A member of the RNA family "c-di-GMP-I riboswitch aptamer" from Eubacterium sp. CAG:274, 85 nucleotides long.

RNA sequence: AUAGGAUGUUGGCAAACUUAUCGAAAGGUAAGGACGCAAAGCUAUGGGGUCUAAGGCUAAUAGCUAUGACAGCCCGGUUGCGAUU
Numbered sequence: 001a002u003a004g005g006a007u008g009u010u011g012g013c014a015a016a017c018u019u020a021u022c023g024a025a026a027g028g029u030a031a032g033g034a035c036g037c038a039a040a041g042c043u044a045u046g047g048g049g050u051c052u053a054a055g056g057c058u059a060a061u062a063g064c065u066a067u068g069a070c071a072g073c074c075c076g077g078u079u080g081c082g083a084u085u
Stems, first nucleotide, its partner, number of pairs: 012037002017032006040079004046075003049070003056064003
The match comes from Rfam's covariance-model search (72 bits).